[Rfam]
The family of this 40-nucleotide RNA sequence from Polerovirus PBMYV is "Putative RNA-dependent RNA polymerase ribosomal frameshift site". Rfam classes the family as a frameshift element. The base pairs follow the family's consensus structure, which is taken from published work. A reference for the family is Hauser et al. (2002), "Biological properties and molecular characterization of beet chlorosis virus (BChV)", Arch Virol.

RNA sequence: GGGAAACGAGAUGCGCGGCUCCGUCCGCGGAACAACCGGA
Number, nucleotide and partner (000 for none) at each position: 001g000002g000003g000004a000005a000006a000007c000008g000009a000010g000011a000012u000013g000014c029015g028016c027017g026018g025019c000020u000021c039022c038023g037024u000025c018026c017027g016028c015029g014030g000031a000032a000033c000034a000035a000036c000037c023038g022039g021040a000